[Rfam]
RNA sequence: AGCCGGCUGGCGCCGAAUCCCGAUCAGUCGGGAACCGGGGACCCACCUUGUUGGGGUGCAUCCGGCCAUCGCCGGUAGGGCUUCUCCACCGCCCGAACCCGUCAGCUAACCCGGUAGGCGCGAUGGAGAGGACGA
Numbered sequence: 001a002g003c004c005g006g007c008u009g010g011c012g013c014c015g016a017a018u019c020c021c022g023a024u025c026a027g028u029c030g031g032g033a034a035c036c037g038g039g040g041a042c043c044c045a046c047c048u049u050g051u052u053g054g055g056g057u058g059c060a061u062c063c064g065g066c067c068a069u070c071g072c073c074g075g076u077a078g079g080g081c082u083u084c085u086c087c088a089c090c091g092c093c094c095g096a097a098c099c100c101g102u103c104a105g106c107u108a109a110c111c112c113g114g115u116a117g118g119c120g121c122g123a124u125g126g127a128g129a130g131g132a133c134g135a
Base pairs, nucleotide, nucleotide: 011120012119013118014117018033019032020031021030022029034115035114036113037112038111039110044053045052054100055099056098062075063074064073065072078094079093080092081091

The record is a 135-nucleotide sequence from Nonomuraea cypriaca, which matches "c-di-AMP riboswitch aptamer (ydaO/yuaA leader)" in Rfam. This family represents a conserved RNA structure found upstream of the ydaO and yuaA genes in Bacillus subtilis and related genes in other bacteria. The source organism's lineage runs through Bacteria, Bacillati, Actinomycetes, Streptosporangiaceae and Nonomuraea. The match comes from Rfam's covariance-model search (103 bits).